[Rfam]
RNA sequence: UGUGCUAUACUUUUAAGCGUUGUGUAAACAACCCUUGACGCUUAGUUCCCUUUCGUCAAGCAUAUUAUAGACGUGAAGAGUUGUUGCUCUUUAACGUUAAAGGAGAAAGAAUU
Numbered sequence: 001u002g003u004g005c006u007a008u009a010c011u012u013u014u015a016a017g018c019g020u021u022g023u024g025u026a027a028a029c030a031a032c033c034c035u036u037g038a039c040g041c042u043u044a045g046u047u048c049c050c051u052u053u054c055g056u057c058a059a060g061c062a063u064a065u066u067a068u069a070g071a072c073g074u075g076a077a078g079a080g081u082u083g084u085u086g087c088u089c090u091u092u093a094a095c096g097u098u099a100a101a102g103g104a105g106a107a108a109g110a111a112u113u
Base pairs, nucleotide, nucleotide: 019032020031021030022029023028034060035059036058037057038056039055040054047105049103050102051101052100070098071097072096073095074094
Dot-bracket structure: ..................(((((....))))).(((((((......[.[[[[.))))))).........(((((...................))))).]]]].]........
Annotation
The family of this 113-nucleotide RNA from Streptococcus pasteurianus is "PreQ1-II (pre queuosine) riboswitch aptamer". Its family is annotated with queuosine biosynthetic process in the Gene Ontology. Rfam's curators write: preQ1-II riboswitch was first reported for Weinberg et al. 2007 it was recognised in Streptococcaceae and Lactococcus families in 5' untranslated regions of genes of a membrane protein classified as COG4708 or DUF988. NCBI's taxonomy places the organism under Bacteria, Bacillota, Lactobacillales, Streptococcaceae, Streptococcus pasteurianus.